[Rfam]
The family of this 139-nucleotide sequence from Rhododendron simsii is "mir-166 microRNA precursor family".
Nucleotides: 139
Stems, first nucleotide, its partner, number of pairs: 002138003006134008016124006024116005
Number, partner (000 for none) and nucleotide at each position: 001000u002138u003137u004136g005000a006134g007133g008132g009131g010130g011129a012128u013127g014000u015000c016124g017123u018122c019121u020120g021119g022000c023000u024116c025115g026114a027113u028112g029000c030000c031000a032000c033000u034000c035000a036000a037000u038000u039000u040000g041000a042000u043000g044000a045000c046000c047000c048000a049000a050000a051000u052000u053000c054000u055000c056000g057000a058000u059000u060000c061000a062000u063000a064000c065000a066000c067000a068000u069000a070000c071000g072000a073000a074000a075000a076000u077000c078000a079000c080000u081000u082000c083000a084000c085000a086000c087000a088000u089000a090000u091000a092000c093000a094000u095000g096000a097000u098000u099000c100000u101000u102000c103000a104000a105000u106000u107000g108000g109000u110000g111000u112028u113027g114026u115025c116024g117000g118000a119021c120020c121019a122018g123017g124016c125000u126000u127013c128012a129011u130010u131009c132008c133007c134006c135000c136004c137003a138002a139000u
Gene Ontology terms of the family: miRNA-mediated post-transcriptional gene silencing and RISC complex. Rfam's curators write: This family represents the plant microRNA (miRNA) precursor mir-166.